[Rfam]
This 314-nucleotide RNA sequence from Xingzhongia strasburgensis belongs to the Rfam family "Nuclear RNase P".
RNA sequence: UUCUCAUCAAAGUCUGUAUUUACCUGCCUACACAAGGGGCCCUCUUCCCCCAGAGGGACCCAGCAGGAGCAGGUGGGAAAUUCGGUGGUACACGCCGCCCAUUAAUUUCUCUCUUGAGAGAGUCCAGGCGAGGAAUCGCUAGGGUGUUGCCAUAAGAAAUUCAGUCCGCCUAGCGGGCAUGGGAGGCUUCACGGGCGGUUGGUCCCUAGUGCAAAACUUUCGCGCUAGGAGGCUUUUGAGUGCAAUAUACAGACCGCCUAGUGGUUCCUUGGGAUCAUCUGGGCGGAACGCGAUACCGAUUAUUUUGGUGAGAA
Numbered sequence: 001u002u003c004u005c006a007u008c009a010a011a012g013u014c015u016g017u018a019u020u021u022a023c024c025u026g027c028c029u030a031c032a033c034a035a036g037g038g039g040c041c042c043u044c045u046u047c048c049c050c051c052a053g054a055g056g057g058a059c060c061c062a063g064c065a066g067g068a069g070c071a072g073g074u075g076g077g078a079a080a081u082u083c084g085g086u087g088g089u090a091c092a093c094g095c096c097g098c099c100c101a102u103u104a105a106u107u108u109c110u111c112u113c114u115u116g117a118g119a120g121a122g123u124c125c126a127g128g129c130g131a132g133g134a135a136u137c138g139c140u141a142g143g144g145u146g147u148u149g150c151c152a153u154a155a156g157a158a159a160u161u162c163a164g165u166c167c168g169c170c171u172a173g174c175g176g177g178c179a180u181g182g183g184a185g186g187c188u189u190c191a192c193g194g195g196c197g198g199u200u201g202g203u204c205c206c207u208a209g210u211g212c213a214a215a216a217c218u219u220u221c222g223c224g225c226u227a228g229g230a231g232g233c234u235u236u237u238g239a240g241u242g243c244a245a246u247a248u249a250c251a252g253a254c255c256g257c258c259u260a261g262u263g264g265u266u267c268c269u270u271g272g273g274a275u276c277a278u279c280u281g282g283g284c285g286g287a288a289c290g291c292g293a294u295a296c297c298g299a300u301u302a303u304u305u306u307g308g309u310g311a312g313a314a
Base pairs, nucleotide, nucleotide: 001314002313003312004311007308008307009306013252022074023073024072025071026070037061038060039059041057042056083298084297085296086295087294097196098195099194100193109122110121111120112119113118125142127140128139129138130137131136145191146190149187150186151185164178165177166176254286255285256284257283258282259281260280
For this family Rfam cites "Ribonuclease P: unity and diversity in a tRNA processing ribozyme" (Frank and Pace, Annu Rev Biochem, 1998). NCBI's taxonomy places the organism under Eukaryota, Ascomycota, saccharomyceta, Saccharomycotina, Xingzhongia. Pairs were carried over by alignment from the consensus structure, which is taken from published work. Rfam's curators put it in the seed alignment.